Background: The family of this 364-nucleotide RNA from Tessaracoccus flavescens is "Bacterial RNase P class A". Taxonomically the source falls in Tessaracoccus (Bacteria, Actinomycetes, Propionibacteriales, Propionibacteriaceae). Rfam classes the family as a ribozyme. Rfam describes the family as follows. Ribonuclease P (RNase P) is a ubiquitous endoribonuclease, found in archaea, bacteria and eukarya as well as chloroplasts and mitochondria.
[Rfam]
RNA sequence: CGAGACGGCCAGAUGAUCGCGGCUGGAGACAGCUGAGGAAAGUCCGGACUCCACAGAGCAGGGUGGUGGGUAACGCCCACCCGGGGUGACCCGCGGGAAAGUGCCACAGAAAACAGACCGCCUGGCGACAGGCAAGGGUGAAACGGUGGUGUAAGAGACCACCAGCACCCCAGGUGACUGGGGUGGCUAGGUAAACCCCACUCGGAGCAAGACCAAGAAGGUCGACCCUCGGGUCGGCCGCGGACGCCGCCUGAGCGCUGCUCGCGCGAGGCGCCCGGGUAGGUUGCAUGAGCCCGUCGGCGACGGCGGGUCGAGAUAGAUGAUCAUCCGUCGACAGAAUCCGGCUUACCGGCCGUCUCGUCCC
Numbered sequence: 001c002g003a004g005a006c007g008g009c010c011a012g013a014u015g016a017u018c019g020c021g022g023c024u025g026g027a028g029a030c031a032g033c034u035g036a037g038g039a040a041a042g043u044c045c046g047g048a049c050u051c052c053a054c055a056g057a058g059c060a061g062g063g064u065g066g067u068g069g070g071u072a073a074c075g076c077c078c079a080c081c082c083g084g085g086g087u088g089a090c091c092c093g094c095g096g097g098a099a100a101g102u103g104c105c106a107c108a109g110a111a112a113a114c115a116g117a118c119c120g121c122c123u124g125g126c127g128a129c130a131g132g133c134a135a136g137g138g139u140g141a142a143a144c145g146g147u148g149g150u151g152u153a154a155g156a157g158a159c160c161a162c163c164a165g166c167a168c169c170c171c172a173g174g175u176g177a178c179u180g181g182g183g184u185g186g187c188u189a190g191g192u193a194a195a196c197c198c199c200a201c202u203c204g205g206a207g208c209a210a211g212a213c214c215a216a217g218a219a220g221g222u223c224g225a226c227c228c229u230c231g232g233g234u235c236g237g238c239c240g241c242g243g244a245c246g247c248c249g250c251c252u253g254a255g256c257g258c259u260g261c262u263c264g265c266g267c268g269a270g271g272c273g274c275c276c277g278g279g280u281a282g283g284u285u286g287c288a289u290g291a292g293c294c295c296g297u298c299g300g301c302g303a304c305g306g307c308g309g310g311u312c313g314a315g316a317u318a319g320a321u322g323a324u325c326a327u328c329c330g331u332c333g334a335c336a337g338a339a340u341c342c343g344g345c346u347u348a349c350c351g352g353c354c355g356u357c358u359c360g361u362c363c364c
Stems, first nucleotide, its partner, number of pairs: 001360010012328007020035006040347003044344005049207004056263004061203005066080005081095001082093004096198002101196002103192003118137002120133005145163006165187001166185008211285004221275001223273002226270001255267004292311008
About this RNA:
Pairs were carried over by alignment from the consensus structure, which is taken from published work.